Rfam assigns this 150-nucleotide RNA from Enhydra lutris to the family "U12 minor spliceosomal RNA". The family is grouped with related families in Rfam's "U2 clan". On this family, see Tarn and Steitz, Trends Biochem Sci 1997: "Pre-mRNA splicing: the discovery of a new spliceosome doubles the challenge". The pairing is the family consensus, mapped onto this sequence. The match comes from Rfam's covariance-model search (96 bits). The organism belongs to Enhydra lutris, within Eukaryota.

[Rfam]
RNA sequence: AUGCCUUCAAUUUAUGAGUAAGGAAAAUAACAAUUCGGGGUGAUGCCCAAAUCCUUACUGCUAAUGUGGGAUGGAUUUUUGAGUGGGUAAAGAUUGCACCUAAGGUGAUGCACCUACUUUACAAGAUGCCUGGGAGUCACGAUCUGCUCC
Numbered sequence: 001a002u003g004c005c006u007u008c009a010a011u012u013u014a015u016g017a018g019u020a021a022g023g024a025a026a027a028u029a030a031c032a033a034u035u036c037g038g039g040g041u042g043a044u045g046c047c048c049a050a051a052u053c054c055u056u057a058c059u060g061c062u063a064a065u066g067u068g069g070g071a072u073g074g075a076u077u078u079u080u081g082a083g084u085g086g087g088u089a090a091a092g093a094u095u096g097c098a099c100c101u102a103a104g105g106u107g108a109u110g111c112a113c114c115u116a117c118u119u120u121a122c123a124a125g126a127u128g129c130c131u132g133g134g135a136g137u138c139a140c141g142a143u144c145u146g147c148u149c150c
Base pairs, nucleotide, nucleotide: 004023005022006021007020033052034051035050037048038047039046054070055069056068057067058066085149086148087147088146091145092144093143094142095141096140100134101133103131104130105129106128107127109125